[Rfam]
RNA sequence: UUGUUAAUGCUAAUCGUGAUAGGGGUUUUAUCUCACAUGGACUCCUACAUGUUAGCAUUAGCAG
Numbered sequence: 001u002u003g004u005u006a007a008u009g010c011u012a013a014u015c016g017u018g019a020u021a022g023g024g025g026u027u028u029u030a031u032c033u034c035a036c037a038u039g040g041a042c043u044c045c046u047a048c049a050u051g052u053u054a055g056c057a058u059u060a061g062c063a064g
Stems, first nucleotide, its partner, number of pairs: 004061011020047004025042003